[Rfam]
RNA: Small nucleolar RNA SNORA75
RNA sequence: GACUUGUCAUUGAGCUCCUUUCUGUCUCUUGGUAGCAGUUUAUGGAUUUGCACAAGAAGAAGAUGAAUUCACAGAACUAGCAUUAUUUUACCUUUUUCCUUCACAGAAGCGUAUCUGGCUAUUUUGUGAGGCAUUC
Numbered sequence: 001g002a003c004u005u006g007u008c009a010u011u012g013a014g015c016u017c018c019u020u021u022c023u024g025u026c027u028c029u030u031g032g033u034a035g036c037a038g039u040u041u042a043u044g045g046a047u048u049u050g051c052a053c054a055a056g057a058a059g060a061a062g063a064u065g066a067a068u069u070c071a072c073a074g075a076a077c078u079a080g081c082a083u084u085a086u087u088u089u090a091c092c093u094u095u096u097u098c099c100u101u102c103a104c105a106g107a108a109g110c111g112u113a114u115c116u117g118g119c120u121a122u123u124u125u126g127u128g129a130g131g132c133a134u135u136c
Stems, first nucleotide, its partner, number of pairs: 003059003007055001014051002016046003022038004069129006092109005